[Rfam]
Overview:
The record is a 44-nucleotide sequence from Terriglobus albidus, which matches "Acido-Lenti-1 RNA" in Rfam. The organism belongs to Terriglobus, within Bacteria.
Nucleotides: 044
Stems, first nucleotide, its partner, number of pairs: 001018006031043004
Number, partner (000 for none) and nucleotide at each position: 001018c002017c003016u004015g005014g006013g007000c008000g009000u010000u011000g012000c013006c014005c015004c016003a017002g018001g019000c020000u021000g022000a023000u024000a025000u026000a027000g028000a029000g030000c031043g032042c033041g034040c035000c036000u037000u038000c039000a040034g041033c042032g043031c044000u